[Rfam]
RNA sequence: CUGGCGAAUGCCGGUGGAACUACAUACCCUACUGGUCGCGGGUUCGAAUCCCGCCAUCGCGCCCUGCGAUGUAGCUCAGAUGGAUAGAGCAGUUGGCCCCAAUGUUUCACCAAACCCUUGUCGCCGGGAC
Numbered sequence: 001c002u003g004g005c006g007a008a009u010g011c012c013g014g015u016g017g018a019a020c021u022a023c024a025u026a027c028c029c030u031a032c033u034g035g036u037c038g039c040g041g042g043u044u045c046g047a048a049u050c051c052c053g054c055c056a057u058c059g060c061g062c063c064c065u066g067c068g069a070u071g072u073a074g075c076u077c078a079g080a081u082g083g084a085u086a087g088a089g090c091a092g093u094u095g096g097c098c099c100c101a102a103u104g105u106u107u108c109a110c111c112a113a114a115c116c117c118u119u120g121u122c123g124c125c126g127g128g129a130c
Stems, first nucleotide, its partner, number of pairs: 002126006013111007023096001031093003038054005055071006074090004
Rfam assigns this 130-nucleotide RNA from Roseobacter sp. SK209-2-6 to the family "Y RNA-like". From the family's description: In Deinococcus radiodurans Rsr is tethered via Y RNA to the exoribonuclease PNPase and channels single-stranded RNA into the PNPase cavity. Rsr and Y RNA enhance degradation of structured RNAs by PNPase. This role could be conserved, as Rsr and ncRNAs called YrlA and YrlB (Y RNA like) also associate with PNPase in an evolutionary distant bacterium Salmonella Typhimurium. Taxonomically the source falls in Roseobacter (Bacteria, Alphaproteobacteria, Rhodobacterales, Roseobacteraceae). Rfam classes the family as a small RNA. Rfam 15.1 lists 124 matches to the family in 99 species. The family's consensus secondary structure is taken from published work.